[Rfam]
The family of this 57-nucleotide RNA from Lupinus albus is "Plastid-ccsA-ndhD-1 3UTR RNA".

RNA sequence: AAAUCGUCCAGAAGCCUUUAAAUCAAGUAAUAUAAUGAUUCAAGGGGUUCUCACAAA
Numbered sequence: 001a002a003a004u005c006g007u008c009c010a011g012a013a014g015c016c017u018u019u020a021a022a023u024c025a026a027g028u029a030a031u032a033u034a035a036u037g038a039u040u041c042a043a044g045g046g047g048u049u050c051u052c053a054c055a056a057a
Base pairs, nucleotide, nucleotide: 010051011050012049013048015046016045017044018043019042021040022039023038024037025036

Rfam 15.1 lists 1,322 matches to the family in 557 species. It is annotated as a cis-regulatory element. Pairs were carried over by alignment from the consensus structure, which was predicted with LocARNA. Lineage of the source: Eukaryota > Tracheophyta > Gunneridae > Fabales > Lupinus. Rfam describes the family as follows. Plastid-ccsA-ndhD-1 is a non-coding RNA (ncRNA) recognised in plastids. It was found in the three prime untranslated region (3UTR) of ccsA and ndhD genes, its 3UTR location suggests a role in transcript maturation. The match comes from Rfam's covariance-model search (53 bits).